RNA sequence: GUGCUUGACAUGACGAAACAUUUCGGAUGUAAAAUUUUCUUUACAGAAUUGCGCAAACAAACCCCGUGUUGAUAUCUUCCGUUGCCUUCCUUCUGAUUCAAGCA
Numbered sequence: 001g002u003g004c005u006u007g008a009c010a011u012g013a014c015g016a017a018a019c020a021u022u023u024c025g026g027a028u029g030u031a032a033a034a035u036u037u038u039c040u041u042u043a044c045a046g047a048a049u050u051g052c053g054c055a056a057a058c059a060a061a062c063c064c065c066g067u068g069u070u071g072a073u074a075u076c077u078u079c080c081g082u083u084g085c086c087u088u089c090c091u092u093c094u095g096a097u098u099c100a101a102g103c104a
Base pairs, nucleotide, nucleotide: 003103004102005101024081025080026079027078
Rfam assigns this 104-nucleotide sequence from Pestalotiopsis fici to the family "Small nucleolar RNA Z13/snr52". It scores 78 bits against the family's covariance model. The source organism's lineage runs through Eukaryota, Fungi, Xylariomycetidae, Amphisphaeriales and Pestalotiopsis fici.